A member of the RNA family "mir-3389 microRNA precursor family" from Harpegnathos saltator, 67 nucleotides long. Rfam 15.1 lists 1,299 matches to the family in 15 species. The family's consensus secondary structure was predicted with RNAalifold.
RNA sequence: UGAGUCGUAGCCGAGGUUCCACAGGAGGGGGCCCAGAACGGACCCCUGUGGAACCCCGCACGACAUC
Numbered sequence: 001u002g003a004g005u006c007g008u009a010g011c012c013g014a015g016g017u018u019c020c021a022c023a024g025g026a027g028g029g030g031g032c033c034c035a036g037a038a039c040g041g042a043c044c045c046c047u048g049u050g051g052a053a054c055c056c057c058g059c060a061c062g063a064c065a066u067c
Stems, first nucleotide, its partner, number of pairs: 004064005010059002013056001015055006024049001026047002029045003033041002